A member of the RNA family "mir-199 microRNA precursor family" from Geococcyx californianus, 82 nucleotides long. The family has 83 seed sequences and 1,828 matches in Rfam 15.1. The base pairs follow the family's consensus structure, which was predicted with RNAalifold. The literature on the family includes a 2002 paper in Genes Dev by Mourelatos et al., "miRNPs: a novel class of ribonucleoproteins containing numerous microRNAs". From the family's description: This family consists of the microRNA (miRNA) precursor mir-199 which appears to be specific to humans. Animal miRNAs are transcribed as ~70nt precursors and subsequently processed by the Dicer enzyme to give a ~22nt product. In this case the mature sequence comes from the 3' arm of the precursor.
RNA sequence: GCCCAGGCUUCCCAGUGUUCAGACUACCUGUUCAGAUGGGUUCGACGUUGUACAGUAGUCUGCACAUUGGUUAGGUCGGGCU
Numbered sequence: 001g002c003c004c005a006g007g008c009u010u011c012c013c014a015g016u017g018u019u020c021a022g023a024c025u026a027c028c029u030g031u032u033c034a035g036a037u038g039g040g041u042u043c044g045a046c047g048u049u050g051u052a053c054a055g056u057a058g059u060c061u062g063c064a065c066a067u068u069g070g071u072u073a074g075g076u077c078g079g080g081c082u
Base pairs, nucleotide, nucleotide: 012070013069014068015067016066017065018064020062021061022060023059024058025057026056028055029054030053031052033050034049